[Rfam]
RNA sequence: UGAAUUUUUAUGAUGAAAUACCAAUGCAACAUAGAGUCAAGCUCUGAGCCAAAAAUUGGCAUGGACGAGACUUGCUAUUCAUAAAUCUGAAAAAAAUUCU
Numbered sequence: 001u002g003a004a005u006u007u008u009u010a011u012g013a014u015g016a017a018a019u020a021c022c023a024a025u026g027c028a029a030c031a032u033a034g035a036g037u038c039a040a041g042c043u044c045u046g047a048g049c050c051a052a053a054a055a056u057u058g059g060c061a062u063g064g065a066c067g068a069g070a071c072u073u074g075c076u077a078u079u080c081a082u083a084a085a086u087c088u089g090a091a092a093a094a095a096a097u098u099c100u
Stems, first nucleotide, its partner, number of pairs: 002099005